[Rfam]
RNA: skipping-rope RNA
RNA sequence: AAAAAUUGAGGAUAGAACAGGCAGCUAUCACACCUAAUAGGUAUUGAAAGAGAUGUGGGAAGGUCACCCCACCAGUAUUU
Number, nucleotide and partner (000 for none) at each position: 001a080002a079003a078004a000005a076006u075007u074008g073009a000010g000011g029012a028013u027014a026015g025016a000017a000018c000019a000020g065021g064022c063023a000024g000025c015026u014027a013028u012029c011030a000031c050032a042033c041034c040035u039036a000037a000038u000039a035040g034041g033042u032043a000044u000045u000046g000047a000048a000049a000050g031051a000052g000053a000054u000055g072056u071057g070058g069059g068060a000061a000062g000063g022064u021065c020066a000067c000068c059069c058070c057071a056072c055073c008074a007075g006076u005077a000078u003079u002080u001